Trypanosomatid snoRNA TB10cs1H3: a 76-nucleotide sequence from Trypanosoma conorhini.
[Rfam]
RNA sequence: CUGGCUGGAAGGAACGUGGCAGGCUGCGGAGGGCUGCAACCCCAUCCCUCCGGCGGUUCAACAACAUGAUCCAAGA
Numbered sequence: 001c002u003g004g005c006u007g008g009a010a011g012g013a014a015c016g017u018g019g020c021a022g023g024c025u026g027c028g029g030a031g032g033g034c035u036g037c038a039a040c041c042c043c044a045u046c047c048c049u050c051c052g053g054c055g056g057u058u059c060a061a062c063a064a065c066a067u068g069a070u071c072c073a074a075g076a
Stems, first nucleotide, its partner, number of pairs: 011072003015068004023057005029050005

The source organism's lineage runs through Eukaryota, Discoba, Euglenozoa, Kinetoplastea and Trypanosoma. Pairs were carried over by alignment from the consensus structure, which was predicted with WAR. Rfam 15.1 lists 36 matches to the family in 16 species.